[Rfam]
RNA sequence: CUGGCUCUCAGUUCUAGCCCUCCCCUCGGAGCUAGAAUUUCAGGCGUCGUGUUCGCACGACGCCUUUUUUU
Numbered sequence: 001c002u003g004g005c006u007c008u009c010a011g012u013u014c015u016a017g018c019c020c021u022c023c024c025c026u027c028g029g030a031g032c033u034a035g036a037a038u039u040u041c042a043g044g045c046g047u048c049g050u051g052u053u054c055g056c057a058c059g060a061c062g063c064c065u066u067u068u069u070u071u
Stems, first nucleotide, its partner, number of pairs: 010038001012037007023029002043064009
RNA: Burkholderia sRNA 54